Shown here is a 130-nucleotide RNA sequence from Polioptila caerulea, a member of the family "Small nucleolar RNA SNORA63".
Its family is annotated with nucleolus and RNA processing in the Gene Ontology.
Rfam classes the family as an H/ACA-box small nucleolar RNA.
From the family's description: E3 belongs to the H/ACA class of snoRNAs and is involved in the processing of eukaryotic pre-rRNA and has regions of complementarity to 18S rRNA. E3 is encoded in introns in the gene for protein synthesis initiation factor 4AII.
It scores 108 bits against the family's covariance model.
[Rfam]
Nucleotides: 130
Base pairs, nucleotide, nucleotide: 003054004053005052006051007050014042015041016040017038018037019036020035021034022033023032082111083110084109085108087106088105089104090103
Number, partner (000 for none) and nucleotide at each position: 001000a002000a003054g004053c005052a006051g007050g008000a009000a010000a011000g012000u013000u014042a015041u016040a017038a018037u019036a020035u021034a022033g023032c024000u025000g026000u027000g028000c029000a030000g031000u032023g033022c034021u035020g036019u037018a038017u039000u040016u041015a042014u043000c044000g045000u046000u047000c048000c049000c050007c051006c052005u053004g054003c055000u056000u057000a058000c059000a060000g061000u062000a063000a064000a065000a066000u067000g068000u069000u070000c071000c072000c073000u074000u075000c076000g077000c078000a079000u080000u081000c082111c083110c084109u085108a086000c087106c088105u089104g090103u091000u092000u093000c094000g095000c096000u097000c098000c099000c100000a101000c102000a103090g104089c105088a106087g107000g108085u109084a110083g111082g112000g113000a114000c115000g116000c117000u118000g119000g120000g121000u122000u123000u124000c125000a126000u127000a128000c129000a130000u